About this RNA
This 129-nucleotide sequence from Rattus norvegicus belongs to the Rfam family "Small nucleolar RNA SNORA33". Rfam links the family to the GO terms RNA processing and nucleolus. It is one of the family's seed sequences. Rfam classes the family as an H/ACA-box small nucleolar RNA. Lineage of the source: Eukaryota > Chordata > Vertebrata > Teleostomi > Rattus. From the family's description: ACA33 is a member of the H/ACA class of snoRNA that guide the sites of modification of uridines to pseudouridines.

[Rfam]
RNA sequence: AAGCCAGCCAUCUAGUCUGCUUAGCUCUGUGUUUCUGCAGAAAUGUAGAAAAGGCUGGCAAUAGUAAUGCCAUGUUACGAGCCUUAAGGACAGCUGAAGUUUUUAAGGUCCCUGAAAAUGGCUACAGUG
Dot-bracket structure: ..(((((........(((((................))))).............))))).........((((........(((((((.(((.......))).))))))).........)))).......